[Rfam]
tRNA: a 74-nucleotide RNA sequence from Halorubrum hochstenium. Rfam classes the family as a transfer RNA. The base pairs follow the family's consensus structure, which is taken from published work. Its family is annotated with triplet codon-amino acid adaptor activity in the Gene Ontology.
RNA sequence: GCCAGGGGAGCAUGGGCGGUUCAUGCACUCGACUUGUAAUCGAGACUUCCGGGGUUCAAAUCCCUGCCCUGGCU
Numbered sequence: 001g002c003c004a005g006g007g008g009a010g011c012a013u014g015g016g017c018g019g020u021u022c023a024u025g026c027a028c029u030c031g032a033c034u035u036g037u038a039a040u041c042g043a044g045a046c047u048u049c050c051g052g053g054g055u056u057c058a059a060a061u062c063c064c065u066g067c068c069c070u071g072g073c074u
Stems, first nucleotide, its partner, number of pairs: 001073007010026004028044005050066005